[Rfam]
RNA: mir-286 microRNA precursor family
Organism: Anopheles sinensis
RNA sequence: CUCACGGCUUAGGGCGAAUGUCGGAGUAGUCUCUUGUGAUUGAAUUAAUGAAAAGUGACUAGACCGAACACUCGUAUCCUAAAUCGUUGA
Numbered sequence: 001c002u003c004a005c006g007g008c009u010u011a012g013g014g015c016g017a018a019u020g021u022c023g024g025a026g027u028a029g030u031c032u033c034u035u036g037u038g039a040u041u042g043a044a045u046u047a048a049u050g051a052a053a054a055g056u057g058a059c060u061a062g063a064c065c066g067a068a069c070a071c072u073c074g075u076a077u078c079c080u081a082a083a084u085c086g087u088u089g090a
Base pairs, nucleotide, nucleotide: 011080012079013078014077016075019070020069021068022066023065024064027061028060029059030058031057033055034054